[Rfam]
RNA sequence: UUUUCAAUGACGAGUUUCAACUCAUGACUUUCGUUCUUCUGAGCUUUCUGAAGCAACUUGCGUUUCUGAGACAGA
Numbered sequence: 001u002u003u004u005c006a007a008u009g010a011c012g013a014g015u016u017u018c019a020a021c022u023c024a025u026g027a028c029u030u031u032c033g034u035u036c037u038u039c040u041g042a043g044c045u046u047u048c049u050g051a052a053g054c055a056a057c058u059u060g061c062g063u064u065u066c067u068g069a070g071a072c073a074g075a
Stems, first nucleotide, its partner, number of pairs: 001075003005070001
Dot-bracket structure: (((.(................................................................)..)))

Notes: Shown here is a 75-nucleotide RNA sequence from Leptobrachium leishanense, a member of the family "Small nucleolar RNA SNORD59". Lineage of the source: Eukaryota > Eumetazoa > Teleostomi > Tetrapoda > Leptobrachium. By type it is a C/D-box small nucleolar RNA.